[Rfam]
RNA: Small nucleolar RNA snoR97
RNA sequence: UUUUUCGAUCAGGUGUAGGGUCUGAAAUAACUCAUAAAUUAGAGUGUUAUCUAUCAGCUUCAUCUUGUGUUAUUGGUCGAGACCGGAGUUAAACAAUAGCACUACGUCU
Numbered sequence: 001u002u003u004u005u006c007g008a009u010c011a012g013g014u015g016u017a018g019g020g021u022c023u024g025a026a027a028u029a030a031c032u033c034a035u036a037a038a039u040u041a042g043a044g045u046g047u048u049a050u051c052u053a054u055c056a057g058c059u060u061c062a063u064c065u066u067g068u069g070u071u072a073u074u075g076g077u078c079g080a081g082a083c084c085g086g087a088g089u090u091a092a093a094c095a096a097u098a099g100c101a102c103u104a105c106g107u108c109u
Stems, first nucleotide, its partner, number of pairs: 043103007056090006063082004